[Rfam]
RNA: MIR6288 microRNA precursor family
Organism: Prunus yedoensis
RNA sequence: ACAAAAUUAGUCACUUGUCAUUUUCUAAUUGGUUCUCAGUGUGUUGAAAUUUUAUAAGAACCAACUAGAAAAUAAUAAGUGGCUAGUUUUGG
Numbered sequence: 001a002c003a004a005a006a007u008u009a010g011u012c013a014c015u016u017g018u019c020a021u022u023u024u025c026u027a028a029u030u031g032g033u034u035c036u037c038a039g040u041g042u043g044u045u046g047a048a049a050u051u052u053u054a055u056a057a058g059a060a061c062c063a064a065c066u067a068g069a070a071a072a073u074a075a076u077a078a079g080u081g082g083c084u085a086g087u088u089u090u091g092g
Base pairs, nucleotide, nucleotide: 002091003090004089005088006087007086008085009084010083011082012081013080014079015078016077017076018075020073021072022071023070024069025068026067027066029064030063031062032061033060034059035058036057038055